RNA sequence: UCCCCGCUUUUCCUCCCUAAGCGGGCGUCUGACGUGUCAAAGCGCUCGGAUGACUUCGCCCGACCUCGUGUCGGGCUUUUUUUG
Numbered sequence: 001u002c003c004c005c006g007c008u009u010u011u012c013c014u015c016c017c018u019a020a021g022c023g024g025g026c027g028u029c030u031g032a033c034g035u036g037u038c039a040a041a042g043c044g045c046u047c048g049g050a051u052g053a054c055u056u057c058g059c060c061c062g063a064c065c066u067c068g069u070g071u072c073g074g075g076c077u078u079u080u081u082u083u084g
Stems, first nucleotide, its partner, number of pairs: 003025006027051004034045003058076007
A member of the RNA family "Burkholderia RNA 7 (anti-hemB)" from Limnohabitans sp. Jir61, 84 nucleotides long. This RNA motif was identified by computational search in b-proteobacteria Burkholderia. Co-purified with Hfq, expression confirmed by Northern blot. Its family is annotated with protein binding and bacterial biofilm matrix in the Gene Ontology. The family's RNA type in Rfam is small RNA.